The family of this 73-nucleotide RNA from Allochromatium vinosum is "tRNA". The family's RNA type in Rfam is transfer RNA. A search with the family's covariance model found it, with a score of 68 bits. The base pairs follow the family's consensus structure, which is taken from published work. Its family is annotated with triplet codon-amino acid adaptor activity in the Gene Ontology.
RNA sequence: GUGGAUGUAGCUCAGUUGGUAGAGCGCAGGAUUGUGAUUCCUGUGGUCGUGGGUUCGAUCCCCAUCGUCCACC
Numbered sequence: 001g002u003g004g005a006u007g008u009a010g011c012u013c014a015g016u017u018g019g020u021a022g023a024g025c026g027c028a029g030g031a032u033u034g035u036g037a038u039u040c041c042u043g044u045g046g047u048c049g050u051g052g053g054u055u056c057g058a059u060c061c062c063c064a065u066c067g068u069c070c071a072c073c
Stems, first nucleotide, its partner, number of pairs: 001072007010025004027043005049065005